Overview
The record is a 97-nucleotide RNA from Triticum aestivum, which matches "Small nucleolar RNA R64/Z200 family" in Rfam. On this family, see Marker et al., Curr Biol 2002: "Experimental RNomics: identification of 140 candidates for small non-messenger RNAs in the plant Arabidopsis thaliana". It scores 62 bits against the family's covariance model.
[Rfam]
RNA sequence: AAAAUGUUGUGAUGAAUCAUGAAAUCUAUGACAUAUGUCAGACUUCAGAGAUGCCAUUUGCCAUUGAUGAGAAGAUAUUUCAUAUUCUGAGCAAUAU
Number, nucleotide and partner (000 for none) at each position: 001a097002a000003a095004a000005u093006g092007u091008u000009g000010u000011g000012a000013u000014g000015a000016a000017u000018c000019a000020u000021g000022a000023a000024a000025u000026c000027u000028a000029u000030g000031a000032c000033a000034u000035a000036u000037g000038u000039c000040a000041g000042a000043c000044u000045u000046c000047a000048g000049a000050g065051a064052u063053g062054c000055c000056a000057u000058u000059u000060g000061c000062c053063a052064u051065u050066g000067a000068u000069g000070a000071g000072a000073a000074g000075a000076u000077a000078u000079u000080u000081c000082a000083u000084a000085u000086u000087c000088u000089g000090a000091g007092c006093a005094a000095u003096a000097u001
Description:
Pairs were carried over by alignment from the consensus structure, which was predicted with PFOLD.